This 110-nucleotide sequence from Kineococcus aurantiacus belongs to the Rfam family "SAM (S-adenosyl methionine) riboswitch aptamer". The family is grouped with related families in Rfam's "SAM clan". The family's consensus secondary structure is taken from published work. Taxonomically the source falls in Kineococcus (Bacteria, Bacillati, Actinomycetota, Actinomycetes).
RNA sequence: GGUCACGAGAACCAGCGACAAGCCCUGGCUAGCUGGUCGGCAACCCUCCCCGCGGUGGGGUGCCCCAGGUGACGACCCGGCCGGAGGGAACCCUCCGGCAAGCGCGAUGA
Number, nucleotide and partner (000 for none) at each position: 001g077002g076003u075004c074005a000006c000007g000008a000009g038010a000011a037012c036013c035014a034015g033016c032017g000018a000019c000020a000021a030022g029023c000024c000025c000026u000027g000028g000029c022030u021031a000032g016033c015034u014035g013036g012037u011038c009039g064040g063041c062042a000043a000044c060045c059046c058047u000048c055049c054050c000051c000052g000053c000054g049055g048056u000057g000058g046059g045060g044061u000062g041063c040064c039065c000066c000067a000068g000069g000070u000071g000072a000073c000074g004075a003076c002077c001078c000079g000080g099081c098082c097083g096084g095085a094086g093087g092088g000089a000090a000091c000092c087093c086094u085095c084096c083097g082098g081099c080100a000101a000102g000103c000104g000105c000106g000107a000108u000109g000110a000